[Rfam]
RNA sequence: UUAGAAACGAUGACGAGGAGCAGUACAUUCAAUUGUCUUUUUAAGAGAGGAAGUGGCCGGUGCAAAUUUCCAAAGACAAGAAUUGGAACCCACCUCAUGAGUUCGCCGUCGGAAGGGUAUGCCUGAAAGACGUGCGCGGUACAUGACCGUUAUCAUGCCAAGUGUGUAGUCUGACGUGUGUGGAGCGUUCAGUCUGCAAACAAGGGUGGUACCACCAGUCAACCUCGGUCCCUUUU
Numbered sequence: 001u002u003a004g005a006a007a008c009g010a011u012g013a014c015g016a017g018g019a020g021c022a023g024u025a026c027a028u029u030c031a032a033u034u035g036u037c038u039u040u041u042u043a044a045g046a047g048a049g050g051a052a053g054u055g056g057c058c059g060g061u062g063c064a065a066a067u068u069u070c071c072a073a074a075g076a077c078a079a080g081a082a083u084u085g086g087a088a089c090c091c092a093c094c095u096c097a098u099g100a101g102u103u104c105g106c107c108g109u110c111g112g113a114a115g116g117g118u119a120u121g122c123c124u125g126a127a128a129g130a131c132g133u134g135c136g137c138g139g140u141a142c143a144u145g146a147c148c149g150u151u152a153u154c155a156u157g158c159c160a161a162g163u164g165u166g167u168a169g170u171c172u173g174a175c176g177u178g179u180g181u182g183g184a185g186c187g188u189u190c191a192g193u194c195u196g197c198a199a200a201c202a203a204g205g206g207u208g209g210u211a212c213c214a215c216c217a218g219u220c221a222a223c224c225u226c227g228g229u230c231c232c233u234u235u236u
Stems, first nucleotide, its partner, number of pairs: 007102002015096004026085002028082003038074003049071006105135002107132004137149003165198005171192004203233004214229003218225001
Rfam assigns this 236-nucleotide sequence from Lentibacillus sp. JNUCC-1 to the family "T-box leader". The match comes from Rfam's covariance-model search (110 bits). From the family's description: Uncharged tRNA acts as the effector for transcription antitermination of genes in the T-box leader family.